Nucleotides: 069
Base pairs, nucleotide, nucleotide: 002069003068004067005066006065
Number, partner (000 for none) and nucleotide at each position: 001000a002069g003068c004067a005066c006065a007000g008000a009000u010000g011000a012000u013000g014000u015000g016000a017000a018000c019000u020000u021000a022000g023000g024000g025000a026000c027000u028000u029000a030000a031000u032000a033000c034000u035000g036000a037000g038000g039000a040000c041000u042000c043000u044000g045000a046000u047000g048000u049000c050000u051000g052000u053000u054000a055000u056000a057000c058000u059000g060000a061000c062000u063000g064000a065006u066005g067004u068003g069002c
Shown here is a 69-nucleotide sequence from Microcaecilia unicolor, a member of the family "Small nucleolar RNA SNORD82". It scores 49 bits against the family's covariance model. The source organism's lineage runs through Eukaryota, Euteleostomi, Amphibia, Siphonopidae and Microcaecilia. On this family, see Galardi et al., Mol Cell Biol 2002: "Purified box C/D snoRNPs are able to reproduce site-specific 2'-O-methylation of target RNA in vitro". snoRNA U82 or Z25 is found in both humans and mice. The family's RNA type in Rfam is C/D-box small nucleolar RNA.